A member of the RNA family "Small nucleolar RNA SNORD72" from Anthoscopus minutus, 78 nucleotides long. Its family is annotated with nucleolus and RNA processing in the Gene Ontology. snoRNA HBII-240 belongs to the CD family of snoRNAs. It is the human orthologue of the mouse MBII-240 and is predicted to guide 2'O-ribose methylation of the large 28S rRNA at residue U4590. Rfam 15.1 lists 726 matches to the family in 499 species. Rfam classes the family as a C/D-box small nucleolar RNA. On this family, see Huttenhofer et al., EMBO J 2001: "RNomics: an experimental approach that identifies 201 candidates for novel, small, non-messenger RNAs in mouse". A search with the family's covariance model found it, with a score of 53 bits.
RNA sequence: AGUUUGUGAAUUAUAUUUAAGAAAAAUCUCUAAACAUAUGAACUCCAUAGUGAUUUCAAUGCAUUACUGAGAGAAGCU
Numbered sequence: 001a002g003u004u005u006g007u008g009a010a011u012u013a014u015a016u017u018u019a020a021g022a023a024a025a026a027u028c029u030c031u032a033a034a035c036a037u038a039u040g041a042a043c044u045c046c047a048u049a050g051u052g053a054u055u056u057c058a059a060u061g062c063a064u065u066a067c068u069g070a071g072a073g074a075a076g077c078u
Stems, first nucleotide, its partner, number of pairs: 002077004007072001